[Rfam]
RNA sequence: GGAAUAUAAAAAACCGUCUCUUAAUUUUUAAUUAAAAAAGCUAAGAAUUGGCUCUUGAAUACGAUAUUUAAGAGCCGGUUCUUAGCUUUUUUUAGUUAAAAAUUAAGAAACGGUUUCUUAUAUUUC
Numbered sequence: 001g002g003a004a005u006a007u008a009a010a011a012a013a014c015c016g017u018c019u020c021u022u023a024a025u026u027u028u029u030a031a032u033u034a035a036a037a038a039a040g041c042u043a044a045g046a047a048u049u050g051g052c053u054c055u056u057g058a059a060u061a062c063g064a065u066a067u068u069u070a071a072g073a074g075c076c077g078g079u080u081c082u083u084a085g086c087u088u089u090u091u092u093u094a095g096u097u098a099a100a101a102a103u104u105a106a107g108a109a110a111c112g113g114u115u116u117c118u119u120a121u122a123u124u125u126c
Base pairs, nucleotide, nucleotide: 001126002125003124004123005122006121007120008119009118011116012115013114014113015112016111017110019108020107021106022105023104024103025102026101027100028099029098030097031096032095033094034093035092036091037090038089039088041085042084043083044082045081046080047079
RNA: MIR9563 microRNA precursor family